RNA sequence: UUGUAUUACCGGAGAGAAAUCUCGUCAGGUCGAUAGUUAGGUCGCGAAUAUUUAUAUUUAAGCGUAAUUCUAAGUACGCCGCCCUAAUUGGGAAAAAGCCAGUAAUGGCUUUUUUUCUUUUAUGG
Numbered sequence: 001u002u003g004u005a006u007u008a009c010c011g012g013a014g015a016g017a018a019a020u021c022u023c024g025u026c027a028g029g030u031c032g033a034u035a036g037u038u039a040g041g042u043c044g045c046g047a048a049u050a051u052u053u054a055u056a057u058u059u060a061a062g063c064g065u066a067a068u069u070c071u072a073a074g075u076a077c078g079c080c081g082c083c084c085u086a087a088u089u090g091g092g093a094a095a096a097a098g099c100c101a102g103u104a105a106u107g108g109c110u111u112u113u114u115u116u117c118u119u120u121u122a123u124g125g
Stems, first nucleotide, its partner, number of pairs: 008030003011025001012023003034090006044082003047058003062079005092115010
Background:
Shown here is a 125-nucleotide RNA sequence, a member of the family "DUF3800-I RNA". Pairs were carried over by alignment from the consensus structure, which is taken from published work. By type it is a small RNA. About the family: Actinobacteria, Firmicutes, Fusobacteria, Proteobacteria (1 example), Tenericutes (2 examples).